Shown here is a 47-nucleotide RNA sequence from Tupaia belangeri, a member of the family "Histone 3' UTR stem-loop". Pairs were carried over by alignment from the consensus structure, which is taken from published work. Rfam classes the family as a cis-regulatory element. Gene Ontology term of the family: mRNA 3'-end processing by stem-loop binding and cleavage. Lineage of the source: Eukaryota > Amniota > Eutheria > Boreoeutheria > Tupaia belangeri.
[Rfam]
RNA sequence: CCAAAGGCUCUUUUCAGAGCCACCCACGUGUGCAAAAGGAGAGCUGU
Numbered sequence: 001c002c003a004a005a006g007g008c009u010c011u012u013u014u015c016a017g018a019g020c021c022a023c024c025c026a027c028g029u030g031u032g033c034a035a036a037a038g039g040a041g042a043g044c045u046g047u
Base pairs, nucleotide, nucleotide: 006021007020008019009018010017011016